[Rfam]
Nucleotides: 122
Stems, first nucleotide, its partner, number of pairs: 006023001027117001029115001030083010043060005063071002090106007
Number, partner (000 for none) and nucleotide at each position: 001000u002000c003000c004000c005000a006023u007000g008000a009000c010000c011000a012000a013000g014000c015000u016000u017000a018000u019000u020000c021000u022000c023006g024000u025000a026000c027117g028000u029115u030083g031082g032081c033080g034079c035078a036077c037076a038075c039074g040000c041000g042000a043060g044059g045058c046057g047056g048000u049000u050000u051000u052000c053000u054000g055000a056047c057046c058045g059044c060043c061000c062000g063071g064070c065000g066000a067000u068000u069000u070064g071063c072000c073000a074039c075038g076037u077036g078035u079034g080033c081032g082031c083030u084000a085000c086000u087000c088000c089000a090106a091105g092104g093103c094102c095101c096100u097000u098000c099000a100096g101095g102094g103093g104092c105091c106090u107000u108000u109000u110000u111000u112000a113000u114000u115029g116000c117027c118000c119000u120000u121000c122000a

Rhizobiales sRNA Atu_C8: a 122-nucleotide sequence from Consotaella salsifontis. Taxonomically the source falls in Consotaella (Bacteria, Pseudomonadati, Alphaproteobacteria, Hyphomicrobiales).